RNA sequence: AUGUACUGAGAGCUGUGGAAAAGAGGGAAUAAAAAAACGCCCACAUAAGCGGGCGUUAUUGUUGCUU
Numbered sequence: 001a002u003g004u005a006c007u008g009a010g011a012g013c014u015g016u017g018g019a020a021a022a023g024a025g026g027g028a029a030u031a032a033a034a035a036a037a038c039g040c041c042c043a044c045a046u047a048a049g050c051g052g053g054c055g056u057u058a059u060u061g062u063u064g065c066u067u
Base pairs, nucleotide, nucleotide: 004017006015032063033062034060035059036057037056038055039054040053041052042051